RNA sequence: CUGGGAAUAGACUGGGAGAUCUUCUGCUCUAUCUCAACAUCAGCUACUAGGCACAGAGCGCCGAAGUAUGUACGUGGUGGUGAGGAAGAACACAGGAUCU
Numbered sequence: 001c002u003g004g005g006a007a008u009a010g011a012c013u014g015g016g017a018g019a020u021c022u023u024c025u026g027c028u029c030u031a032u033c034u035c036a037a038c039a040u041c042a043g044c045u046a047c048u049a050g051g052c053a054c055a056g057a058g059c060g061c062c063g064a065a066g067u068a069u070g071u072a073c074g075u076g077g078u079g080g081u082g083a084g085g086a087a088g089a090a091c092a093c094a095g096g097a098u099c100u
Stems, first nucleotide, its partner, number of pairs: 001015004017100003021096003035082002038079005045072002050062003

Flavivirus 3' UTR cis-acting replication element (CRE): a 100-nucleotide RNA from Orthoflavivirus japonicum. The organism belongs to Orthoflavivirus japonicum, within Viruses. Rfam classes the family as a cis-regulatory element. On this family, see Zeng et al., J Virol 1998: "Identification of specific nucleotide sequences within the conserved 3'-SL in the dengue type 2 virus genome required for replication". The family's consensus secondary structure is taken from published work. This family represents the Flavivirus 3'-SL cis-acting replication element (CRE). The family is thought to play a crucial role in replication and is thought to be needed for the formation of a 'replication complex'. Although evidence has been presented for an existence of a pseudoknot structure in this RNA, it does not appear to be well conserved across flaviviruses. Its family is annotated with viral genome replication in the Gene Ontology.